This 77-nucleotide sequence from Piliocolobus tephrosceles belongs to the Rfam family "mir-1278 microRNA precursor family". The source organism's lineage runs through Eukaryota, Deuterostomia, Vertebrata, Tetrapoda and Piliocolobus. The match comes from Rfam's covariance-model search (62 bits).

RNA sequence: UUCGCUCAUAGAUGACAUGCAUGGUUCUACCAACUUAAUGAGUUCUGGGAGUACUAUGCAUAUCAUCUAUGAGCAAA
Numbered sequence: 001u002u003c004g005c006u007c008a009u010a011g012a013u014g015a016c017a018u019g020c021a022u023g024g025u026u027c028u029a030c031c032a033a034c035u036u037a038a039u040g041a042g043u044u045c046u047g048g049g050a051g052u053a054c055u056a057u058g059c060a061u062a063u064c065a066u067c068u069a070u071g072a073g074c075a076a077a
Stems, first nucleotide, its partner, number of pairs: 001077002004074012017061009027051002030048003033043003